[Rfam]
The record is an 81-nucleotide sequence from Odobenus rosmarus, which matches "Small nucleolar RNA SNORD115" in Rfam. A reference for the family is Cavaille et al. (2000), "Identification of brain-specific and imprinted small nucleolar RNA genes exhibiting an unusual genomic organization", Proc Natl Acad Sci U S A. The organism belongs to Odobenus rosmarus, within Eukaryota. The base pairs follow the family's consensus structure, which was predicted with PFOLD. A search with the family's covariance model found it, with a score of 84 bits.

RNA sequence: GUGUCAAUGAUGAGAACUCAUAUUGUCCUGAAGAGAGAUGAUGACCUAAGAAUCAUGGUUAAUAGGAUUACACUGAGUCCC
Numbered sequence: 001g002u003g004u005c006a007a008u009g010a011u012g013a014g015a016a017c018u019c020a021u022a023u024u025g026u027c028c029u030g031a032a033g034a035g036a037g038a039u040g041a042u043g044a045c046c047u048a049a050g051a052a053u054c055a056u057g058g059u060u061a062a063u064a065g066g067a068u069u070a071c072a073c074u075g076a077g078u079c080c081c
Stems, first nucleotide, its partner, number of pairs: 001081001003079001005075002008072002
Rfam 15.1 lists 3,387 matches to the family in 131 species.